[Rfam]
RNA: Alphaproteobacterial sRNA ar7
RNA sequence: CAGCGGCGCACGUUAGCGCCGAUGCCUGAUGGAGGCUCGUCCCCCGCCUCGUCAGACAACAGGACAAAGGCUCCAUCCCCCCUCUCCGGCCUUUGUCCCAAAAAGCAGCCGCCAUGGCCAGCCCCCCUCCAGGCCAUGGCGGCUUAUU
Numbered sequence: 001c002a003g004c005g006g007c008g009c010a011c012g013u014u015a016g017c018g019c020c021g022a023u024g025c026c027u028g029a030u031g032g033a034g035g036c037u038c039g040u041c042c043c044c045c046g047c048c049u050c051g052u053c054a055g056a057c058a059a060c061a062g063g064a065c066a067a068a069g070g071c072u073c074c075a076u077c078c079c080c081c082c083u084c085u086c087c088g089g090c091c092u093u094u095g096u097c098c099c100a101a102a103a104a105g106c107a108g109c110c111g112c113c114a115u116g117g118c119c120a121g122c123c124c125c126c127c128u129c130c131a132g133g134c135c136a137u138g139g140c141g142g143c144u145u146a147u148u
Base pairs, nucleotide, nucleotide: 026055027054028053029052030051031050034048035047036046062098063097064096065095066094067093068092069091070090071089107144109142110141111140112139113138114137115136116135117134118133119132